This 102-nucleotide RNA sequence from Clostridium sp. CAG:138 belongs to the Rfam family "TPP riboswitch aptamer (THI element)".

RNA sequence: CACAUCCGCUGGGUGCGUACACGGGUCAUUCCCGAUGUACUGAGAAAGAACCUUUGAACCUGUUAGGGUAAUACCUGCGUAGGGAAGCGGUGCGAAAAUUUG
Numbered sequence: 001c002a003c004a005u006c007c008g009c010u011g012g013g014u015g016c017g018u019a020c021a022c023g024g025g026u027c028a029u030u031c032c033c034g035a036u037g038u039a040c041u042g043a044g045a046a047a048g049a050a051c052c053u054u055u056g057a058a059c060c061u062g063u064u065a066g067g068g069u070a071a072u073a074c075c076u077g078c079g080u081a082g083g084g085a086a087g088c089g090g091u092g093c094g095a096a097a098a099u100u101u102g
Base pairs, nucleotide, nucleotide: 006090007089008088009087010086011053012052013051014050017040018039019038020037021036059083060082061081062080064077065076066075067074